[Rfam]
Nucleotides: 102
Stems, first nucleotide, its partner, number of pairs: 020086006029049007058078007
Number, partner (000 for none) and nucleotide at each position: 001000a002000g003000u004000a005000u006000u007000a008000u009000g010000a011000c012000a013000u014000a015000a016000g017000u018000a019000c020086c021085u022084c023083a024082u025081a026000u027000a028000a029049u030048c031047u032046c033045g034044g035043g036000a037000a038000u039000a040000u041000g042000g043035c044034c045033u046032g047031a048030g049029a050000g051000u052000c053000u054000c055000u056000a057000u058078c059077u060076g061075g062074u063073a064072a065000c066000c067000g068000u069000a070000a071000a072064u073063u074062a075061c076060u077059g078058g079000a080000c081025u082024a083023u084022g085021g086020g087000u088000g089000a090000a091000c092000u093000a094000a095000a096000a097000u098000c099000a100000u101000u102000g

Shown here is a 102-nucleotide sequence from Sporomusa silvacetica, a member of the family "Purine riboswitch aptamer". The source organism's lineage runs through Bacteria, Bacillati, Sporomusaceae, Sporomusa and Sporomusa silvacetica. Rfam links the family to the GO term purine nucleobase biosynthetic process. The family is grouped with related families in Rfam's "Purine riboswitches".